Shown here is a 131-nucleotide RNA from Citrobacter youngae, a member of the family "EFASI RNA". The base pairs follow the family's consensus structure, which is taken from published work. The sequence is in the family's curated seed alignment.
RNA sequence: CCGAACCGAUACCGGAGGACAGGCAAUCGUGCCUGUGGGGAUUUACCUGCUCUGGCAGGCGGCUGCAUUCGUGCAUCACCGUACCCCGUCAAACCUCAUCUGCGCAUCUUCCGGCGCACCGGUAUCUUUCG
Numbered sequence: 001c002c003g004a005a006c007c008g009a010u011a012c013c014g015g016a017g018g019a020c021a022g023g024c025a026a027u028c029g030u031g032c033c034u035g036u037g038g039g040g041a042u043u044u045a046c047c048u049g050c051u052c053u054g055g056c057a058g059g060c061g062g063c064u065g066c067a068u069u070c071g072u073g074c075a076u077c078a079c080c081g082u083a084c085c086c087c088g089u090c091a092a093a094c095c096u097c098a099u100c101u102g103c104g105c106a107u108c109u110u111c112c113g114g115c116g117c118a119c120c121g122g123u124a125u126c127u128u129u130c131g
Stems, first nucleotide, its partner, number of pairs: 002131004008126007020035006037087004046059005060081003064075004